[Rfam]
RNA sequence: AAAAAGGGCUUCUGUCGUGAGUGGCAUACGUAGGGCAGCUUGGUUGUUCUUGAUGCGUAAUCGACAAUAAGAGAUUUCGGAAGCAUAAUUUUUUGGUACCUGGGCAGCUAGUGAUCAUUGGCCCUGGCACCCCG
Numbered sequence: 001a002a003a004a005a006g007g008g009c010u011u012c013u014g015u016c017g018u019g020a021g022u023g024g025c026a027u028a029c030g031u032a033g034g035g036c037a038g039c040u041u042g043g044u045u046g047u048u049c050u051u052g053a054u055g056c057g058u059a060a061u062c063g064a065c066a067a068u069a070a071g072a073g074a075u076u077u078c079g080g081a082a083g084c085a086u087a088a089u090u091u092u093u094u095g096g097u098a099c100c101u102g103g104g105c106a107g108c109u110a111g112u113g114a115u116c117a118u119u120g121g122c123c124c125u126g127g128c129a130c131c132c133c134g
Stems, first nucleotide, its partner, number of pairs: 008084005013026005027055002032050007056079002059076004102132003107128005113123001115121002

Rfam assigns this 134-nucleotide RNA sequence from Pteropus vampyrus to the family "U11 spliceosomal RNA".
NCBI's taxonomy places the organism under Eukaryota, Opisthokonta, Dipnotetrapodomorpha, Laurasiatheria, Pteropus.
Gene Ontology terms of the family: U11 snRNP, mRNA 5'-splice site recognition and pre-mRNA 5'-splice site binding.
The family's consensus secondary structure is taken from published work.
It is annotated as a spliceosomal small nuclear RNA.